[Rfam]
RNA sequence: GCACUUGCCAAGAACUCUCUCUGUGACUUGUGUCCUUUUUUUCGAAACUCACAUCACAGUCUGAGUUCUUGCUGAGAGC
Numbered sequence: 001g002c003a004c005u006u007g008c009c010a011a012g013a014a015c016u017c018u019c020u021c022u023g024u025g026a027c028u029u030g031u032g033u034c035c036u037u038u039u040u041u042u043c044g045a046a047a048c049u050c051a052c053a054u055c056a057c058a059g060u061c062u063g064a065g066u067u068c069u070u071g072c073u074g075a076g077a078g079c
Base pairs, nucleotide, nucleotide: 004076005075006074009071010070011069012068013067014066015065016064017063021059022058023057024056025055026054030052031051032050